[Rfam]
RNA sequence: AGAGCCGGCCAGACGGUCGCGUCCGGUAUGCCGCGCGGCAUACCGGCCGAGGAAGGUCCGGACUCCACAGGGCAAGGUGAUGGCUAACGGCCACCCGGGGCGACCCGCGGGACAGUGCCACAGAGAGCAGACCGCCCCACCUUCGGGUGGGGUAAGGGUGAAAGGGUGGUGUAAGAGACCACCAGCGGCCUGGGCGACCAGACCGGCUCGGUAAACCCCACCUGGAGCAAGCCCAGAUAUGCGUGCGUUCGACGGCGGCCCGCCGGAGCACGCGGGUAGGGCGCUCGAGCCCGCCGGCAACGGCGGGCCUAGAUGGAUGACCGUCACCGCACCUGCGGCAACGCGGAUGCGGCACAGAAUCCGGCCUAUCGGCCGGCUCUUCCU
Numbered sequence: 001a002g003a004g005c006c007g008g009c010c011a012g013a014c015g016g017u018c019g020c021g022u023c024c025g026g027u028a029u030g031c032c033g034c035g036c037g038g039c040a041u042a043c044c045g046g047c048c049g050a051g052g053a054a055g056g057u058c059c060g061g062a063c064u065c066c067a068c069a070g071g072g073c074a075a076g077g078u079g080a081u082g083g084c085u086a087a088c089g090g091c092c093a094c095c096c097g098g099g100g101c102g103a104c105c106c107g108c109g110g111g112a113c114a115g116u117g118c119c120a121c122a123g124a125g126a127g128c129a130g131a132c133c134g135c136c137c138c139a140c141c142u143u144c145g146g147g148u149g150g151g152g153u154a155a156g157g158g159u160g161a162a163a164g165g166g167u168g169g170u171g172u173a174a175g176a177g178a179c180c181a182c183c184a185g186c187g188g189c190c191u192g193g194g195c196g197a198c199c200a201g202a203c204c205g206g207c208u209c210g211g212u213a214a215a216c217c218c219c220a221c222c223u224g225g226a227g228c229a230a231g232c233c234c235a236g237a238u239a240u241g242c243g244u245g246c247g248u249u250c251g252a253c254g255g256c257g258g259c260c261c262g263c264c265g266g267a268g269c270a271c272g273c274g275g276g277u278a279g280g281g282c283g284c285u286c287g288a289g290c291c292c293g294c295c296g297g298c299a300a301c302g303g304c305g306g307g308c309c310u311a312g313a314u315g316g317a318u319g320a321c322c323g324u325c326a327c328c329g330c331a332c333c334u335g336c337g338g339c340a341a342c343g344c345g346g347a348u349g350c351g352g353c354a355c356a357g358a359a360u361c362c363g364g365c366c367u368a369u370c371g372g373c374c375g376g377c378u379c380u381u382c383c384u
Stems, first nucleotide, its partner, number of pairs: 001380010011369001012325007020049002023046009054367003058364005063227004070261004075223005081093004095109001096107004110218002115216002117212003132157002134153008165183006185207001186205003190201004231282004241273006253265004289308008
Shown here is a 384-nucleotide RNA from Nostocoides australiense, a member of the family "Bacterial RNase P class A". The source organism's lineage runs through Bacteria, Actinomycetes, Intrasporangiaceae, Nostocoides and Nostocoides australiense. By type it is a ribozyme.